[Rfam]
The record is a 164-nucleotide sequence from Eubacteriaceae bacterium CHKCI004, which matches "Clostridiales-1 RNA" in Rfam. The base pairs follow the family's consensus structure, which is taken from published work. The family's RNA type in Rfam is small RNA. NCBI's taxonomy places the organism under Bacteria, Bacillota, Clostridia, Eubacteriales, Eubacteriaceae.
Nucleotides: 164
Base pairs, nucleotide, nucleotide: 001164002163003162004161005160006159007158010071011070012069013068017064018063020061022059023058024057025056026055027054028053031050032049034047036045037044038043076120077119078118079117080115081114082113085110086109087108088107092103093102094101095100124155125154126153127152128151129150130149135145136144137143138142
Number, partner (000 for none) and nucleotide at each position: 001164u002163g003162g004161a005160a006159a007158a008000a009000a010071u011070c012069c013068g014000g015000c016000c017064a018063g019000c020061g021000g022059c023058u024057g025056a026055g027054c028053a029000g030000a031050c032049g033000g034047g035000a036045a037044g038043a039000u040000u041000u042000a043038u044037c045036u046000g047034c048000c049032c050031g051000g052000a053028u054027g055026u056025u057024c058023a059022g060000a061020c062000a063018u064017u065000g066000g067000a068013c069012g070011g071010a072000u073000u074000c075000a076120g077119g078118a079117a080115c081114a082113u083000g084000a085110g086109c087108a088107u089000g090000a091000a092103g093102a094101g095100c096000g097000a098000g099000a100095g101094c102093u103092c104000g105000g106000a107088a108087u109086g110085c111000g112000a113082a114081u115080g116000a117079u118078u119077c120076c121000g122000g123000a124155g125154g126153a127152u128151g129150g130149c131000g132000a133000g134000a135145g136144u137143g138142c139000g140000g141000c142138g143137c144136a145135c146000g147000a148000a149130g150129c151128c152127a153126u154125c155124c156000a157000a158007u159006u160005u161004u162003c163002c164001a